RNA sequence: UUCUUACUAGAUGAUGAUGACUGUCAUGUGUCAUGUUAUGAUUGGAUGUCAACUCCAUGAAAGAUGAAAUGCAUUGCUGUUUUCAUUUACCAAUUAAAACAUGACAUGUGACAUUCAUCAUCC
Numbered sequence: 001u002u003c004u005u006a007c008u009a010g011a012u013g014a015u016g017a018u019g020a021c022u023g024u025c026a027u028g029u030g031u032c033a034u035g036u037u038a039u040g041a042u043u044g045g046a047u048g049u050c051a052a053c054u055c056c057a058u059g060a061a062a063g064a065u066g067a068a069a070u071g072c073a074u075u076g077c078u079g080u081u082u083u084c085a086u087u088u089a090c091c092a093a094u095u096a097a098a099a100c101a102u103g104a105c106a107u108g109u110g111a112c113a114u115u116c117a118u119c120a121u122c123c
Base pairs, nucleotide, nucleotide: 023112024111025110026109028107029106032103033102034101036099037098039096041094042093043092